A member of the RNA family "Glycine riboswitch aptamer" from Aquibacillus salsiterrae, 78 nucleotides long. The organism belongs to Aquibacillus, within Bacteria. It scores 42 bits against the family's covariance model.
RNA sequence: UCUCUGGAGAGCGCAGCAAAGCCACCCAAGGGGAAGCCUUUAGAAGCUAAGGUAAACUCUCAGGUACAAGGACAGAGA
Numbered sequence: 001u002c003u004c005u006g007g008a009g010a011g012c013g014c015a016g017c018a019a020a021g022c023c024a025c026c027c028a029a030g031g032g033g034a035a036g037c038c039u040u041u042a043g044a045a046g047c048u049a050a051g052g053u054a055a056a057c058u059c060u061c062a063g064g065u066a067c068a069a070g071g072a073c074a075g076a077g078a
Stems, first nucleotide, its partner, number of pairs: 001078006013022002024065003028060001031059003037052004